This 98-nucleotide RNA from Drosophila erecta belongs to the Rfam family "mir-286 microRNA precursor family". Lineage of the source: Eukaryota > Panarthropoda > Acalyptratae > Drosophilinae > Sophophora.
RNA sequence: UUAAAAUUGAAUGGCGAAUGUCGGUAUGGUCUCUUUUUCAAAGAAGGUUUCGAUCGAGCGAAGUGACUAGACCGAACACUCGUGCUAUAAUUUUAAAA
Numbered sequence: 001u002u003a004a005a006a007u008u009g010a011a012u013g014g015c016g017a018a019u020g021u022c023g024g025u026a027u028g029g030u031c032u033c034u035u036u037u038u039c040a041a042a043g044a045a046g047g048u049u050u051c052g053a054u055c056g057a058g059c060g061a062a063g064u065g066a067c068u069a070g071a072c073c074g075a076a077c078a079c080u081c082g083u084g085c086u087a088u089a090a091u092u093u094u095a096a097a098a
Base pairs, nucleotide, nucleotide: 011088012087013086014085015084016083019078020077021076022074023073024072027069028068029067030066031065033063034062